Background
The record is a 408-nucleotide sequence from Candidatus Palibaumannia cicadellinicola, which matches "Bacterial RNase P class A" in Rfam. The source organism's lineage runs through Bacteria, Pseudomonadati, Pseudomonadota, Gammaproteobacteria and Candidatus Palibaumannia. The family's RNA type in Rfam is ribozyme.
RNA sequence: GAAGUUGACUAGACAGUCGCUGCUUCAUACUAACAAUAAUAUGAAGGAGAGGAAAGUCCGGGCUCCAUAGGGCAAGGUGCCAGGUAACGCCUGGGGGGUAGAAACAAACUUACGACAAGUGCAACAGAAAGUAAACCGCCAAUGGCCUAUUGAUUUUUAUUAUACUUGAUCAAAAAAUAAGUAUUAAUAAAUAGGAUCAGGUAAGGGUGAAAAGGUGCGGUAAAAGCGCACCGCGUAUUUGGUAACAAUUUACGGCACGGUAAACUCCACCUGGAGCAAGGCUAAAAAGAGGUUAAAUAGUGCGGCCCGUACUUAUAACCCAGGUAAGCUGCUUGAGCCAGAUCGCAAGUACUGGUCUAGAUGAAUGACUGUCCACGACAGAACCCGGCUUAACGGUCAACUUCUUCU
Numbered sequence: 001g002a003a004g005u006u007g008a009c010u011a012g013a014c015a016g017u018c019g020c021u022g023c024u025u026c027a028u029a030c031u032a033a034c035a036a037u038a039a040u041a042u043g044a045a046g047g048a049g050a051g052g053a054a055a056g057u058c059c060g061g062g063c064u065c066c067a068u069a070g071g072g073c074a075a076g077g078u079g080c081c082a083g084g085u086a087a088c089g090c091c092u093g094g095g096g097g098g099u100a101g102a103a104a105c106a107a108a109c110u111u112a113c114g115a116c117a118a119g120u121g122c123a124a125c126a127g128a129a130a131g132u133a134a135a136c137c138g139c140c141a142a143u144g145g146c147c148u149a150u151u152g153a154u155u156u157u158u159a160u161u162a163u164a165c166u167u168g169a170u171c172a173a174a175a176a177a178u179a180a181g182u183a184u185u186a187a188u189a190a191a192u193a194g195g196a197u198c199a200g201g202u203a204a205g206g207g208u209g210a211a212a213a214g215g216u217g218c219g220g221u222a223a224a225a226g227c228g229c230a231c232c233g234c235g236u237a238u239u240u241g242g243u244a245a246c247a248a249u250u251u252a253c254g255g256c257a258c259g260g261u262a263a264a265c266u267c268c269a270c271c272u273g274g275a276g277c278a279a280g281g282c283u284a285a286a287a288a289g290a291g292g293u294u295a296a297a298u299a300g301u302g303c304g305g306c307c308c309g310u311a312c313u314u315a316u317a318a319c320c321c322a323g324g325u326a327a328g329c330u331g332c333u334u335g336a337g338c339c340a341g342a343u344c345g346c347a348a349g350u351a352c353u354g355g356u357c358u359a360g361a362u363g364a365a366u367g368a369c370u371g372u373c374c375a376c377g378a379c380a381g382a383a384c385c386c387g388g389c390u391u392a393a394c395g396g397u398c399a400a401c402u403u404c405u406u407c408u
Stems, first nucleotide, its partner, number of pairs: 001404010012373007020049002023046006054391003058388005063276004070308004075272005080094005095113001096111004114267002119265002121261002136206002138202003143199003147195002214232006233256001234254004239248003280330004291320005299313005337356005344349001